RNA sequence: GAGUUAGCAUAGCAAAGUGGUUACUUCGAAGAUAAAUAAAAUUCAAAAUUUUAAAAACUGGUUAUCUCUUUCCUUUCAAGGAGACUCCAAAAAAAAUUGUUUACCACUUGCGCCAUCUAACUUUUUG
Numbered sequence: 001g002a003g004u005u006a007g008c009a010u011a012g013c014a015a016a017g018u019g020g021u022u023a024c025u026u027c028g029a030a031g032a033u034a035a036a037u038a039a040a041a042u043u044c045a046a047a048a049u050u051u052u053a054a055a056a057a058c059u060g061g062u063u064a065u066c067u068c069u070u071u072c073c074u075u076u077c078a079a080g081g082a083g084a085c086u087c088c089a090a091a092a093a094a095a096a097u098u099g100u101u102u103a104c105c106a107c108u109u110g111c112g113c114c115a116u117c118u119a120a121c122u123u124u125u126u127g
Stems, first nucleotide, its partner, number of pairs: 002122006012111004017107004
Shown here is a 127-nucleotide RNA sequence from Brachionus calyciflorus, a member of the family "Vault RNA".
For this family Rfam cites "Evolution of Vault RNAs" (Stadler et al., Mol Biol Evol, 2009).
The match comes from Rfam's covariance-model search (48 bits).
Rfam classes the family as a non-coding RNA gene.